[Rfam]
RNA sequence: GUCGGCUAUGGGGACAUGCAUCCAGUAACCAUUGGAGGCAAAAUUGUGGGAUCUCUGUGCGCCAUCGCUGGUGUGCUGACCAUUGCGCUGCCCGUACCUGUCAUCGUGUCCAAU
Numbered sequence: 001g002u003c004g005g006c007u008a009u010g011g012g013g014a015c016a017u018g019c020a021u022c023c024a025g026u027a028a029c030c031a032u033u034g035g036a037g038g039c040a041a042a043a044u045u046g047u048g049g050g051a052u053c054u055c056u057g058u059g060c061g062c063c064a065u066c067g068c069u070g071g072u073g074u075g076c077u078g079a080c081c082a083u084u085g086c087g088c089u090g091c092c093c094g095u096a097c098c099u100g101u102c103a104u105c106g107u108g109u110c111c112a113a114u
Stems, first nucleotide, its partner, number of pairs: 001114002004111002007108005013102004018097001020095002037077004049063002
RNA: Potassium channel RNA editing signal